A member of the RNA family "Group II catalytic intron D1-D4-4" from Saliterribacillus persicus, 140 nucleotides long. A reference for the family is Bonen and Vogel (2001), "The ins and outs of group II introns", Trends Genet. The base pairs follow the family's consensus structure. Its family is annotated with Group II intron splicing in the Gene Ontology. Group II introns are found in rRNA, tRNA and mRNA of organelles in fungi, plants and protists, and also in mRNA in bacteria.

RNA sequence: UAAUUGGUGAGAGUCCAAUCUGAGUAAGUACCAAGGCGCUCAAUAGCUGACAGGCAACUGGUGGAGAAAUCCUAAGGUUGAAGACCUGGGACAAAGUAACCCUCAGGAAGAGUGCGAGAACCUAACAGGUUGUAACAUAA
Numbered sequence: 001u002a003a004u005u006g007g008u009g010a011g012a013g014u015c016c017a018a019u020c021u022g023a024g025u026a027a028g029u030a031c032c033a034a035g036g037c038g039c040u041c042a043a044u045a046g047c048u049g050a051c052a053g054g055c056a057a058c059u060g061g062u063g064g065a066g067a068a069a070u071c072c073u074a075a076g077g078u079u080g081a082a083g084a085c086c087u088g089g090g091a092c093a094a095a096g097u098a099a100c101c102c103u104c105a106g107g108a109a110g111a112g113u114g115c116g117a118g119a120a121c122c123u124a125a126c127a128g129g130u131u132g133u134a135a136c137a138u139a140a
Stems, first nucleotide, its partner, number of pairs: 021042004051088004055080005064071002096115001100114001102112003117133001119131001